A member of the RNA family "cspA thermoregulator" from Xanthomonas boreopolis, 432 nucleotides long.
RNA sequence: UUUGGUUCGGCACGGGUUAAGUUGCAACCGCUGCGCUUGGCAAGGUCACCGUGAAUCGUGGCCUGAUGGGUAGAUCAUCGAUCCGCUACAUCCUUGCACCUCGCUUCCUCCUUGCAACCAGCCAACACUGCCAUCAACCAAUCACGUGUGAUCCAGGGAGUAAGUCGAGAUGUCAGACCGUGAGACCGGUACCGUCAAGUGGUUCAACGAUGCCAAGGGCUUCGGCUUCAUCAGCCGCGAGAAUGGCGAAGACGUGUUCGUGCACUUCCGCGCCAUCCAGAUCCAGGGCUUCAAGAGCCUGAAGGAAGGCCAGAAGGUGACCUUCACCGUCGUGCAGGGCCAGAAGGGACUGCAGGCGGAUGCCGUCCAGCCUGCCUGAUCGCCGCGCCAAAGCCCAGACGGCAAAAAGGCCCGCAAGCGGGCCUUUUUGCU
Numbered sequence: 001u002u003u004g005g006u007u008c009g010g011c012a013c014g015g016g017u018u019a020a021g022u023u024g025c026a027a028c029c030g031c032u033g034c035g036c037u038u039g040g041c042a043a044g045g046u047c048a049c050c051g052u053g054a055a056u057c058g059u060g061g062c063c064u065g066a067u068g069g070g071u072a073g074a075u076c077a078u079c080g081a082u083c084c085g086c087u088a089c090a091u092c093c094u095u096g097c098a099c100c101u102c103g104c105u106u107c108c109u110c111c112u113u114g115c116a117a118c119c120a121g122c123c124a125a126c127a128c129u130g131c132c133a134u135c136a137a138c139c140a141a142u143c144a145c146g147u148g149u150g151a152u153c154c155a156g157g158g159a160g161u162a163a164g165u166c167g168a169g170a171u172g173u174c175a176g177a178c179c180g181u182g183a184g185a186c187c188g189g190u191a192c193c194g195u196c197a198a199g200u201g202g203u204u205c206a207a208c209g210a211u212g213c214c215a216a217g218g219g220c221u222u223c224g225g226c227u228u229c230a231u232c233a234g235c236c237g238c239g240a241g242a243a244u245g246g247c248g249a250a251g252a253c254g255u256g257u258u259c260g261u262g263c264a265c266u267u268c269c270g271c272g273c274c275a276u277c278c279a280g281a282u283c284c285a286g287g288g289c290u291u292c293a294a295g296a297g298c299c300u301g302a303a304g305g306a307a308g309g310c311c312a313g314a315a316g317g318u319g320a321c322c323u324u325c326a327c328c329g330u331c332g333u334g335c336a337g338g339g340c341c342a343g344a345a346g347g348g349a350c351u352g353c354a355g356g357c358g359g360a361u362g363c364c365g366u367c368c369a370g371c372c373u374g375c376c377u378g379a380u381c382g383c384c385g386c387g388c389c390a391a392a393g394c395c396c397a398g399a400c401g402g403c404a405a406a407a408a409g410g411c412c413c414g415c416a417a418g419c420g421g422g423c424c425u426u427u428u429u430g431c432u
Base pairs, nucleotide, nucleotide: 004018005017006016007015008014009013024238025237030235031234032233033232040229044227045226046225047224049219050218052216060214061213062212065208067206069205070204072203075201079172080171082169084167085166092158093157094156095155096154098152101117103115129140130139174189176187243330244329245328246327251259252258263319264318265317266316267315272311273309274308276303278301279300280299284297335352336351337350340348341347353378354377355376356375357374358373359372361370385396387394388393404429405428406427407426408425409424410423411422412421413420414419
Rfam classes the family as an RNA thermoregulator. It scores 89 bits against the family's covariance model. Pairs were carried over by alignment from the consensus structure, which is taken from published work.